[Rfam]
RNA: Plastid-ycf2 5UTR RNA
RNA sequence: GUGAAACCAGUAGGACUUGAACUUACGAAUCCGCUAAUUAUGAGUUGGGCGCUUUAACCAUUCAGCCAUGGAUGC
Numbered sequence: 001g002u003g004a005a006a007c008c009a010g011u012a013g014g015a016c017u018u019g020a021a022c023u024u025a026c027g028a029a030u031c032c033g034c035u036a037a038u039u040a041u042g043a044g045u046u047g048g049g050c051g052c053u054u055u056a057a058c059c060a061u062u063c064a065g066c067c068a069u070g071g072a073u074g075c
Stems, first nucleotide, its partner, number of pairs: 003075001005073001007071002010026005040069003044066006051059001